RNA sequence: ACCCUCCAGUGGGUGUAGAGUCUGAAAAAACUCAGAAAUUUUGUGUCGUCUAUCAGCUUCAUCUUCUGUACUCUACGAGAAUGGAGUUAAAUAUCGGCACUAUAUCC
Numbered sequence: 001a002c003c004c005u006c007c008a009g010u011g012g013g014u015g016u017a018g019a020g021u022c023u024g025a026a027a028a029a030a031c032u033c034a035g036a037a038a039u040u041u042u043g044u045g046u047c048g049u050c051u052a053u054c055a056g057c058u059u060c061a062u063c064u065u066c067u068g069u070a071c072u073c074u075a076c077g078a079g080a081a082u083g084g085a086g087u088u089a090a091a092u093a094u095c096g097g098c099a100c101u102a103u104a105u106c107c
Base pairs, nucleotide, nucleotide: 043100044099045098046097047096048095055088056087057086058085059084060083062080063079064078065077
Rfam assigns this 107-nucleotide RNA sequence from Morella rubra to the family "Small nucleolar RNA snoR97".
Pairs were carried over by alignment from the consensus structure, which was predicted with WAR.
The family has 7 seed sequences and 862 matches in Rfam 15.1.
It scores 84 bits against the family's covariance model.
For this family Rfam cites "Experimental RNomics: identification of 140 candidates for small non-messenger RNAs in the plant Arabidopsis thaliana" (Marker et al., Curr Biol, 2002).